[Rfam]
RNA sequence: ACUGCUACUGUAAACAUCCUUGACUGGAAGCUGUAAGGUAUCAGCAGGAGCUUUCAGUCGGAUGUUUACAGCAGCAGC
Numbered sequence: 001a002c003u004g005c006u007a008c009u010g011u012a013a014a015c016a017u018c019c020u021u022g023a024c025u026g027g028a029a030g031c032u033g034u035a036a037g038g039u040a041u042c043a044g045c046a047g048g049a050g051c052u053u054u055c056a057g058u059c060g061g062a063u064g065u066u067u068a069c070a071g072c073a074g075c076a077g078c
Base pairs, nucleotide, nucleotide: 002077003076004075005074006073008071009070010069011068012067013066014065015064016063017062018061019060023058024057025056026055027054028053029052030051031050032049